Shown here is an 84-nucleotide RNA from Leptotrombidium deliense, a member of the family "mir-46/mir-47/mir-281 microRNA precursor family".
[Rfam]
RNA sequence: CAGGUAACACCACAGAGAGAGCUAUCCGUGGACAGUGAGCUUUCGACCGACUGUCAUGGAGUUGCUCUCUUUAUGGAGAACCUG
Numbered sequence: 001c002a003g004g005u006a007a008c009a010c011c012a013c014a015g016a017g018a019g020a021g022c023u024a025u026c027c028g029u030g031g032a033c034a035g036u037g038a039g040c041u042u043u044c045g046a047c048c049g050a051c052u053g054u055c056a057u058g059g060a061g062u063u064g065c066u067c068u069c070u071u072u073a074u075g076g077a078g079a080a081c082c083u084g
Base pairs, nucleotide, nucleotide: 014072015071016070017069018068020066021065022064025060026059027058028057031055032054033053035051036050
NCBI's taxonomy places the organism under Eukaryota, Protostomia, Panarthropoda, Trombidiformes, Leptotrombidium. A reference for the family is Lau et al. (2001), "An abundant class of tiny RNAs with probable regulatory roles in Caenorhabditis elegans", Science. Its family is annotated with miRNA-mediated post-transcriptional gene silencing and RISC complex in the Gene Ontology.